[Rfam]
RNA sequence: CGGUGGGGUAGAGGCGCAGAUAAGAAGAGUAUACUAUGUGAGGAUGACAACUGAGAACAUAGUAGAAAGGAUUAUUUGCCGAAGUUUUAUUAGAUUGUCAAACUAGUAAGACUGGGGUUAUCUUGAAAAAGGGUAACACUGUCAUUGUAAGGGAAUCCUUAUAAUGGGGAGCUACAGAUCGU
Numbered sequence: 001c002g003g004u005g006g007g008g009u010a011g012a013g014g015c016g017c018a019g020a021u022a023a024g025a026a027g028a029g030u031a032u033a034c035u036a037u038g039u040g041a042g043g044a045u046g047a048c049a050a051c052u053g054a055g056a057a058c059a060u061a062g063u064a065g066a067a068a069g070g071a072u073u074a075u076u077u078g079c080c081g082a083a084g085u086u087u088u089a090u091u092a093g094a095u096u097g098u099c100a101a102a103c104u105a106g107u108a109a110g111a112c113u114g115g116g117g118u119u120a121u122c123u124u125g126a127a128a129a130a131g132g133g134u135a136a137c138a139c140u141g142u143c144a145u146u147g148u149a150a151g152g153g154a155a156u157c158c159u160u161a162u163a164a165u166g167g168g169g170a171g172c173u174a175c176a177g178a179u180c181g182u
Base pairs, nucleotide, nucleotide: 008175009174010173011172016079017078018077019076020075021074022073023072032064033063034062035061036060037059038058039057083113084112085111086110087109088108089107090106091105092104093103114140115139117137118136119135120134121133122132123131124130142167143166144165145164146163147162148161149160150159

This 182-nucleotide RNA sequence from Bacillus coahuilensis belongs to the Rfam family "Lysine riboswitch aptamer". From the family's description: Riboswitches are metabolite binding domains within certain messenger RNAs that serve as precision sensors for their corresponding targets. Allosteric rearrangement of mRNA structure is mediated by ligand binding, and this results in modulation of gene expression. This family includes riboswitches that sense lysine in a number of genes involved in lysine metabolism, including lysC. It scores 120 bits against the family's covariance model. Rfam 15.1 lists 3,224 matches to the family in 1,923 species. Taxonomically the source falls in Bacillus coahuilensis (Bacteria, Bacillota, Caryophanales, Bacillaceae).